Source information:
The record is a 136-nucleotide RNA sequence from Corythaixoides concolor, which matches "Small Cajal body specific RNA 3" in Rfam.
[Rfam]
RNA sequence: GCUGGGACCAGUUGGGACCAGUCAUGGGCAAAAGAAAAUGUGUUUUGUCCACCGUUGCAGUCUUCCUAGAGCAAAGUGGAGGUCUCUGUCUGCUUUAGGAGAGCCAGCUAAACCAGAUCGUUCCCCUCCAUACACA
Number, nucleotide and partner (000 for none) at each position: 001g000002c000003u000004g066005g065006g064007a000008c000009c060010a000011g058012u057013u000014g000015g000016g000017a000018c000019c000020a000021g000022u000023c000024a000025u051026g050027g049028g048029c047030a000031a000032a000033a000034g046035a045036a044037a000038a000039u000040g000041u000042g000043u000044u036045u035046u034047g029048u028049c027050c026051a025052c000053c000054g000055u000056u000057g012058c011059a000060g009061u000062c000063u000064u006065c005066c004067u000068a000069g000070a000071g000072c000073a000074a000075a000076g000077u000078g129079g128080a127081g126082g125083u000084c000085u000086c120087u000088g118089u117090c116091u000092g114093c000094u112095u111096u110097a109098g108099g000100a000101g000102a000103g000104c000105c000106a000107g000108c098109u097110a096111a095112a094113c000114c092115a000116g090117a089118u088119c000120g086121u000122u000123c000124c000125c082126c081127u080128c079129c078130a000131u000132a000133c000134a000135c000136a000

A reference for the family is Huttenhofer et al. (2001), "RNomics: an experimental approach that identifies 201 candidates for novel, small, non-messenger RNAs in mouse", EMBO J.